RNA: mir-19 microRNA precursor family
Organism: Kryptolebias marmoratus
RNA sequence: UUGCUUGGUCAGUUUUGCUGGUUUGCAUUCAGCUUUUACGGAUGUGCGCUGUGCAAAUCCAUGCAAAACUGACCAGGUUG
Numbered sequence: 001u002u003g004c005u006u007g008g009u010c011a012g013u014u015u016u017g018c019u020g021g022u023u024u025g026c027a028u029u030c031a032g033c034u035u036u037u038a039c040g041g042a043u044g045u046g047c048g049c050u051g052u053g054c055a056a057a058u059c060c061a062u063g064c065a066a067a068a069c070u071g072a073c074c075a076g077g078u079u080g
Stems, first nucleotide, its partner, number of pairs: 003078016020060002022057007031050003